This 74-nucleotide sequence from Lottia gigantea belongs to the Rfam family "Small nucleolar RNA SNORD79". A search with the family's covariance model found it, with a score of 48 bits. Rfam links the family to the GO terms nucleolus and RNA processing. NCBI's taxonomy places the organism under Eukaryota, Bilateria, Lophotrochozoa, Gastropoda, Lottia. Rfam describes the family as follows. snoRNA U79 or Z22 is found in intron 7 of the gas5 gene in humans and is also present in mice. It is annotated as a C/D-box small nucleolar RNA. On this family, see Smith and Steitz, Mol Cell Biol 1998: "Classification of gas5 as a multi-small-nucleolar-RNA (snoRNA) host gene and a member of the 5'-terminal oligopyrimidine gene family reveals common features of snoRNA host genes".
RNA sequence: UGUAGUAAAUGAUGAACACAAUAUAAUGGGAAUCUCUCUGAAAUCUAUGAUAGAUUUAUAGUUCUGAUACUACC
Numbered sequence: 001u002g003u004a005g006u007a008a009a010u011g012a013u014g015a016a017c018a019c020a021a022u023a024u025a026a027u028g029g030g031a032a033u034c035u036c037u038c039u040g041a042a043a044u045c046u047a048u049g050a051u052a053g054a055u056u057u058a059u060a061g062u063u064c065u066g067a068u069a070c071u072a073c074c
Base pairs, nucleotide, nucleotide: 002073003072004071005070006069007068